[Rfam]
RNA: RNase MRP
Organism: Grus americana
RNA sequence: GGAUGCUCUGAAGACCUGCUCGCUAGGCCACGCACGGAGGACGCUGGUUCCUCACGGGCCCCGCGCCCGCCUAGGGGAAAGUCCCCGGACCGCCGGCAGAGAGUGCCGGGCGCUGCCGGCGCCCUCGCCCGCCCCCAUCUCACGCAUUUCACCGCCGAGACGCCCCUGGGCUGAGCGGGUGAGCGCGGGGCGGGCUCUCGUCACGGUCACAGACACGCAGGUAGUGCGCAACCGCACCAACAGAACGGGGCUCACUCUCAGGCCAUC
Numbered sequence: 001g002g003a004u005g006c007u008c009u010g011a012a013g014a015c016c017u018g019c020u021c022g023c024u025a026g027g028c029c030a031c032g033c034a035c036g037g038a039g040g041a042c043g044c045u046g047g048u049u050c051c052u053c054a055c056g057g058g059c060c061c062c063g064c065g066c067c068c069g070c071c072u073a074g075g076g077g078a079a080a081g082u083c084c085c086c087g088g089a090c091c092g093c094c095g096g097c098a099g100a101g102a103g104u105g106c107c108g109g110g111c112g113c114u115g116c117c118g119g120c121g122c123c124c125u126c127g128c129c130c131g132c133c134c135c136c137a138u139c140u141c142a143c144g145c146a147u148u149u150c151a152c153c154g155c156c157g158a159g160a161c162g163c164c165c166c167u168g169g170g171c172u173g174a175g176c177g178g179g180u181g182a183g184c185g186c187g188g189g190g191c192g193g194g195c196u197c198u199c200g201u202c203a204c205g206g207u208c209a210c211a212g213a214c215a216c217g218c219a220g221g222u223a224g225u226g227c228g229c230a231a232c233c234g235c236a237c238c239a240a241c242a243g244a245a246c247g248g249g250g251c252u253c254a255c256u257c258u259c260a261g262g263c264c265a266u267c
Stems, first nucleotide, its partner, number of pairs: 002267004007262005014222006023074006037053005080252002083250004095107004108124006126194001128192001132190003136185001141183001143181001152178004162171003224237005